[Rfam]
RNA sequence: GGCUCCGUAGCUUAACUGAAUAGAGCACCUGACUACGGAUCAGGAGGUUGCAGGUUUGAAUCCCGCCGGAGUCA
Numbered sequence: 001g002g003c004u005c006c007g008u009a010g011c012u013u014a015a016c017u018g019a020a021u022a023g024a025g026c027a028c029c030u031g032a033c034u035a036c037g038g039a040u041c042a043g044g045a046g047g048u049u050g051c052a053g054g055u056u057u058g059a060a061u062c063c064c065g066c067c068g069g070a071g072u073c074a
Stems, first nucleotide, its partner, number of pairs: 001073007010026004028044005050066002053063002
Source information
tRNA: a 74-nucleotide sequence from Candidatus [Bacteroides] periocalifornicus. It scores 58 bits against the family's covariance model. NCBI's taxonomy places the organism under Bacteria, Pseudomonadati, Bacteroidota. Transfer RNA (tRNA) molecules are approximately 80 nucleotides in length. Their secondary structure includes four short double-helical elements and three loops (D, anti-codon, and T loops). Further hydrogen bonds mediate the characteristic L-shaped molecular structure. tRNAs have two regions of fundamental functional importance: the anti-codon, which is responsible for specific mRNA codon recognition, and the 3' end, to which the tRNAs corresponding amino acid is attached (by aminoacyl-tRNA synthetases). tRNAs cope with the degeneracy of the genetic code in two manners: having more than one tRNA (with a specific anti-codon) for a particular amino acid; and 'wobble' base-pairing, i.e. permitting non-standard base-pairing at the 3rd anti-codon position.